RNA: Group II catalytic intron D1-D4-6
RNA sequence: AAAGUUUCAUACGUUGAAGGCUUAGCCAGCUACGGCGGCCCCGAGUCAUGCGUGCACAUUCGUGAGGGUGUGGGCGAAGCGUUGACAGGGGGACGCGCGGGCCGGGUAUUGAGCUGCGCAAUCCAUGCCCUGGGCCGAGAGGCUCGGGACGAUCGGGGUGCCGAGGCAGUGGAGAUAUGCCGAAGGCCACACCGUGCCUGCCGCAUUGGCGAGGCAGGCAUGGACCCCGCGCAGUCACAGACCC
Numbered sequence: 001a002a003a004g005u006u007u008c009a010u011a012c013g014u015u016g017a018a019g020g021c022u023u024a025g026c027c028a029g030c031u032a033c034g035g036c037g038g039c040c041c042c043g044a045g046u047c048a049u050g051c052g053u054g055c056a057c058a059u060u061c062g063u064g065a066g067g068g069u070g071u072g073g074g075c076g077a078a079g080c081g082u083u084g085a086c087a088g089g090g091g092g093a094c095g096c097g098c099g100g101g102c103c104g105g106g107u108a109u110u111g112a113g114c115u116g117c118g119c120a121a122u123c124c125a126u127g128c129c130c131u132g133g134g135c136c137g138a139g140a141g142g143c144u145c146g147g148g149a150c151g152a153u154c155g156g157g158g159u160g161c162c163g164a165g166g167c168a169g170u171g172g173a174g175a176u177a178u179g180c181c182g183a184a185g186g187c188c189a190c191a192c193c194g195u196g197c198c199u200g201c202c203g204c205a206u207u208g209g210c211g212a213g214g215c216a217g218g219c220a221u222g223g224a225c226c227c228c229g230c231g232c233a234g235u236c237a238c239a240g241a242c243c244c
Base pairs, nucleotide, nucleotide: 012037013036014035015034016033019031020030021029022028023212025210026209039091040090041089042088045086046085047084048083049081050080051076052075053074055072056071057070058069059068060067061066111236113235114234115233116232117231118230154229155228156227157226158225159224160187161186162185165181166180167179168178192223193222194221195220196219197218198217199216200215201214202213